[Rfam]
RNA: SAM-I/IV (S-adenosyl methionine) riboswitch aptamer
RNA sequence: ACUGAGCAUCAGGAGUGGGCGCAAGCCCCGCCAACCUGCUUACCCAAGCAAGGUGGUUCGAGAAUGUGGCCGUAAGGCAACCAAGUGGGUUCUC
Numbered sequence: 001a002c003u004g005a006g007c008a009u010c011a012g013g014a015g016u017g018g019g020c021g022c023a024a025g026c027c028c029c030g031c032c033a034a035c036c037u038g039c040u041u042a043c044c045c046a047a048g049c050a051a052g053g054u055g056g057u058u059c060g061a062g063a064a065u066g067u068g069g070c071c072g073u074a075a076g077g078c079a080a081c082c083a084a085g086u087g088g089g090u091u092c093u094c
Stems, first nucleotide, its partner, number of pairs: 006067004015029001017028004030057003035053003038049003042090005069078003